[Rfam]
RNA sequence: UACGCCGUGGCGGGAGAGCUCGAGAACCGUGUACACGGGGUCUCGGCGCCGUAGGAGCAAACCCUCCCCGGGAAUCUCUCAGGCAUCCGUACCGCUGCAGCGUG
Numbered sequence: 001u002a003c004g005c006c007g008u009g010g011c012g013g014g015a016g017a018g019c020u021c022g023a024g025a026a027c028c029g030u031g032u033a034c035a036c037g038g039g040g041u042c043u044c045g046g047c048g049c050c051g052u053a054g055g056a057g058c059a060a061a062c063c064c065u066c067c068c069c070g071g072g073a074a075u076c077u078c079u080c081a082g083g084c085a086u087c088c089g090u091a092c093c094g095c096u097g098c099a100g101c102g103u104g
Stems, first nucleotide, its partner, number of pairs: 007098007020046006048084003051080001055078003062070001
RNA: Glycine riboswitch aptamer